[Rfam]
Shown here is a 47-nucleotide RNA sequence from Roseovarius mucosus, a member of the family "Guanidine-II riboswitch aptamer (mini-ykkC)". The organism belongs to Roseovarius, within Bacteria. A search with the family's covariance model found it, with a score of 38 bits.
RNA sequence: CGCGCGGGACGACCCGUGCCUGACGCAUCCAUUUCGGGACGACCCGA
Numbered sequence: 001c002g003c004g005c006g007g008g009a010c011g012a013c014c015c016g017u018g019c020c021u022g023a024c025g026c027a028u029c030c031a032u033u034u035c036g037g038g039a040c041g042a043c044c045c046g047a
Base pairs, nucleotide, nucleotide: 002019003018004017005016006015007014008013034047035046036045037044038043
Dot-bracket structure: .(((((((....)))))))..............(((((....)))))